[Rfam]
RNA sequence: UGAGUGUUAUGAUGAUGGAAUCUUUAAAGAUUCUUAGUCUAGCUCUGGUCUACCGCCGAUUUAGAUCGGCGG
Numbered sequence: 001u002g003a004g005u006g007u008u009a010u011g012a013u014g015a016u017g018g019a020a021u022c023u024u025u026a027a028a029g030a031u032u033c034u035u036a037g038u039c040u041a042g043c044u045c046u047g048g049u050c051u052a053c054c055g056c057c058g059a060u061u062u063a064g065a066u067c068g069g070c071g072g
Stems, first nucleotide, its partner, number of pairs: 002045004011039003017034006053072008